[Rfam]
RNA sequence: AAAAAGAAGCGACCCGCAGGGAGGAGCCAUGUGGGUCGAAUAGGUAAAAACCAUUAUUCAUCCUUCAUGUCUUUGCCGACACGGAUCAGAACAGAUGGUGAUGCUAUUUGGAUUUUAAUUGUUAGGAGCCCGUGGAUAUUGGCAGUAAA
Numbered sequence: 001a002a003a004a005a006g007a008a009g010c011g012a013c014c015c016g017c018a019g020g021g022a023g024g025a026g027c028c029a030u031g032u033g034g035g036u037c038g039a040a041u042a043g044g045u046a047a048a049a050a051c052c053a054u055u056a057u058u059c060a061u062c063c064u065u066c067a068u069g070u071c072u073u074u075g076c077c078g079a080c081a082c083g084g085a086u087c088a089g090a091a092c093a094g095a096u097g098g099u100g101a102u103g104c105u106a107u108u109u110g111g112a113u114u115u116u117a118a119u120u121g122u123u124a125g126g127a128g129c130c131c132g133u134g135g136a137u138a139u140u141g142g143c144a145g146u147a148a149a
Stems, first nucleotide, its partner, number of pairs: 013035006020028002046058002049055002061147001063145002066142001069139001072136005078130001080128001081122004092110008